[Rfam]
RNA sequence: CCUAGCUCGGGCCGGGAGACGCCGCGGCCGCAGGAGGCGCGGAGUGAAGAGGAGAGGGGGCCGCAGUGGGCGCUCGGCUCUCGGCAGCCGGGCUCAUGGACGGGUGAGGCGGCCGUGUGCGCAGACAGAGCCCCAGCCGCGCGCGCGCCCCAGCCCCAGGCCCGGGCCCGGGCCUUGGCUCCAGGAGGAAGCGGAGCCCGCCAAGGCGGGGAGGAGAGCGGGCUGCCCCGCAGCCCGAUCCGGAGAGGGAGCACGCGCCGCGCCGGCCCCGGCCGGGCCUCUGAAACCAUGAACUUUUUGCUU
Dot-bracket structure: .((..((..((((((......)))..)))..)).))..(.(((..(..((((....((((((((.((((.(.....(..(((....(.((((((..(((..(((.(.((((((.(((.((.(.....).))..)).).)).))).).)......))).(((...((((((..((((...((..((.(.........).).)...))....))))....)))))))))))).)))))).).........)))..)..))))))).)))))).......)))).....).......)).)..)..
Numbered sequence: 001c002c003u004a005g006c007u008c009g010g011g012c013c014g015g016g017a018g019a020c021g022c023c024g025c026g027g028c029c030g031c032a033g034g035a036g037g038c039g040c041g042g043a044g045u046g047a048a049g050a051g052g053a054g055a056g057g058g059g060g061c062c063g064c065a066g067u068g069g070g071c072g073c074u075c076g077g078c079u080c081u082c083g084g085c086a087g088c089c090g091g092g093c094u095c096a097u098g099g100a101c102g103g104g105u106g107a108g109g110c111g112g113c114c115g116u117g118u119g120c121g122c123a124g125a126c127a128g129a130g131c132c133c134c135a136g137c138c139g140c141g142c143g144c145g146c147g148c149c150c151c152a153g154c155c156c157c158a159g160g161c162c163c164g165g166g167c168c169c170g171g172g173c174c175u176u177g178g179c180u181c182c183a184g185g186a187g188g189a190a191g192c193g194g195a196g197c198c199c200g201c202c203a204a205g206g207c208g209g210g211g212a213g214g215a216g217a218g219c220g221g222g223c224u225g226c227c228c229c230g231c232a233g234c235c236c237g238a239u240c241c242g243g244a245g246a247g248g249g250a251g252c253a254c255g256c257g258c259c260g261c262g263c264c265g266g267c268c269c270c271g272g273c274c275g276g277g278c279c280u281c282u283g284a285a286a287c288c289a290u291g292a293a294c295u296u297u298u299u300g301c302u303u
Stems, first nucleotide, its partner, number of pairs: 002036002006033002010029003013024003039301001041298001042296002046287001049281004057270006063263002066261004071257001077254001080251003087239001089237006097230003102157003106148001108146001109144003112140002115137001116135002119131002122128001159227003165224006173214004180206002184201001185199001187197001